This 87-nucleotide RNA sequence from Paenacidovorax monticola belongs to the Rfam family "SAH (S-adenosyl-L-homocysteine) riboswitch aptamer". The family's consensus secondary structure is taken from published work.
RNA sequence: UCGCCCAAGGAGCGUUGCAGCGGCAUCCACCCCGGAUCGCCGUCAGGCUUGGGCUCGGGACCUUUCUUCCAACGACGCUCACCUGUU
Numbered sequence: 001u002c003g004c005c006c007a008a009g010g011a012g013c014g015u016u017g018c019a020g021c022g023g024c025a026u027c028c029a030c031c032c033c034g035g036a037u038c039g040c041c042g043u044c045a046g047g048c049u050u051g052g053g054c055u056c057g058g059g060a061c062c063u064u065u066c067u068u069c070c071a072a073c074g075a076c077g078c079u080c081a082c083c084u085g086u087u
Stems, first nucleotide, its partner, number of pairs: 003054006021042004